[Rfam]
RNA sequence: UCCUGACAGCGAAAGCUGACGCUAGCCAAGACAGGAGAUAAAAAUG
Number, nucleotide and partner (000 for none) at each position: 001u000002c035003c034004u033005g032006a000007c018008a017009g016010c015011g000012a000013a000014a000015g010016c009017u008018g007019a000020c000021g000022c000023u000024a000025g000026c000027c000028a000029a000030g000031a000032c005033a004034g003035g002036a000037g000038a000039u000040a000041a000042a000043a000044a000045u000046g000
RNA: Mu-gpT-DE RNA